[Rfam]
RNA sequence: GGAAGUUAAGAAACUGUUUCUAAGCUUUUAACUAAAAAAGCUAAGAAUCGAUUCUUAAAAUCCUUAUUUAAGAACUGUUAAGAAUCGGUUCUUAGUUUUUUUAGUUAAAAGUUAAGAAACAGUUUCUUAACUUCU
Numbered sequence: 001g002g003a004a005g006u007u008a009a010g011a012a013a014c015u016g017u018u019u020c021u022a023a024g025c026u027u028u029u030a031a032c033u034a035a036a037a038a039a040g041c042u043a044a045g046a047a048u049c050g051a052u053u054c055u056u057a058a059a060a061u062c063c064u065u066a067u068u069u070a071a072g073a074a075c076u077g078u079u080a081a082g083a084a085u086c087g088g089u090u091c092u093u094a095g096u097u098u099u100u101u102u103a104g105u106u107a108a109a110a111g112u113u114a115a116g117a118a119a120c121a122g123u124u125u126c127u128u129a130a131c132u133u134c135u
Stems, first nucleotide, its partner, number of pairs: 001135021023113017041095013

MIR9563 microRNA precursor family: a 135-nucleotide sequence from Brassica cretica. The match comes from Rfam's covariance-model search (95 bits). Rfam 15.1 lists 5,832 matches to the family in 9 species. Taxonomically the source falls in Brassica (Eukaryota, Viridiplantae, Tracheophyta, eudicotyledons). Rfam links the family to the GO terms miRNA-mediated post-transcriptional gene silencing and RISC complex.